[Rfam]
RNA sequence: GAGCAGUGAGGAAAGCUGUGCCAUAGUGGAUGGAGGGUCCUCUACGUUUGUUUGAUUUGAUGAUUUACUAUAGACGCUUCCGAGCUC
Numbered sequence: 001g002a003g004c005a006g007u008g009a010g011g012a013a014a015g016c017u018g019u020g021c022c023a024u025a026g027u028g029g030a031u032g033g034a035g036g037g038u039c040c041u042c043u044a045c046g047u048u049u050g051u052u053u054g055a056u057u058u059g060a061u062g063a064u065u066u067a068c069u070a071u072a073g074a075c076g077c078u079u080c081c082g083a084g085c086u087c
Base pairs, nucleotide, nucleotide: 001087002086003085004084
The family of this 87-nucleotide RNA from Chenopodium quinoa is "small nucleolar RNA snoR114". The organism belongs to Chenopodium, within Eukaryota. The match comes from Rfam's covariance-model search (50 bits). Pairs were carried over by alignment from the consensus structure, which was predicted with RNAalifold.